Shown here is a 65-nucleotide RNA sequence from Myotis brandtii, a member of the family "mir-9242 microRNA precursor family". The organism belongs to Myotis, within Eukaryota. Rfam links the family to the GO terms RISC complex and miRNA-mediated post-transcriptional gene silencing.

RNA sequence: GGCCUCCCUCUGUGGGGCGAUUGAUCUGGGGGCCCCCACAAUCAAUCGCCCCACAAAGGGAGGCC
Numbered sequence: 001g002g003c004c005u006c007c008c009u010c011u012g013u014g015g016g017g018c019g020a021u022u023g024a025u026c027u028g029g030g031g032g033c034c035c036c037c038a039c040a041a042u043c044a045a046u047c048g049c050c051c052c053a054c055a056a057a058g059g060g061a062g063g064c065c
Stems, first nucleotide, its partner, number of pairs: 001065009011055015027038004